[Rfam]
RNA sequence: CCAUACUUAGAUGGAUAGUGAUAGCUGUCUUUUAGCUAUUUUUGAAUUUUAAGUAUGAUGUUGUGUUUGCAUAUUGGUCUAGGAAACUAGACUAGAGUAACAAAAAAGUUACUCGUUUCACUUCCUGUAUAUUUUGAACCUUUUGGUUUAGCUACCGCCCAUGUUGGGCGGUUUUUUAU
Number, nucleotide and partner (000 for none) at each position: 001c000002c000003a000004u000005a000006c000007u000008u000009a049010g048011a047012u046013g000014g000015a000016u044017a042018g041019u000020g040021a039022u038023a037024g036025c035026u034027g033028u000029c000030u000031u000032u000033u027034a026035g025036c024037u023038a022039u021040u020041u018042u017043u000044g016045a000046a012047u011048u010049u009050u000051a000052a000053g000054u000055a000056u000057g000058a000059u000060g000061u000062u000063g000064u000065g000066u000067u000068u000069g000070c000071a000072u000073a000074u000075u094076g093077g092078u091079c090080u089081a088082g087083g000084a000085a000086a000087c082088u081089a080090g079091a078092c077093u076094a075095g000096a113097g112098u111099a110100a109101c108102a000103a000104a000105a000106a000107a000108g101109u100110u099111a098112c097113u096114c000115g000116u000117u000118u000119c000120a000121c000122u000123u000124c000125c000126u000127g000128u000129a149130u000131a147132u146133u145134u000135u000136g000137a000138a000139c000140c000141u000142u000143u000144u000145g133146g132147u131148u000149u129150a000151g000152c000153u170154a000155c168156c167157g000158c000159c000160c000161a000162u000163g000164u000165u000166g000167g156168g155169c000170g153171g000172u000173u000174u000175u000176u000177u000178a000179u000
The record is a 179-nucleotide RNA from Glaesserella parasuis, which matches "GcvB RNA" in Rfam. Rfam describes the family as follows. The gcvB gene encodes a small untranslated RNA involved in expression of the dipeptide and oligopeptide transport systems in Escherichia coli. Included several unknown homologues in alignment (Bateman A pers obs). Taxonomically the source falls in Glaesserella parasuis (Bacteria, Pseudomonadati, Pseudomonadota, Glaesserella). The base pairs follow the family's consensus structure, which is taken from published work.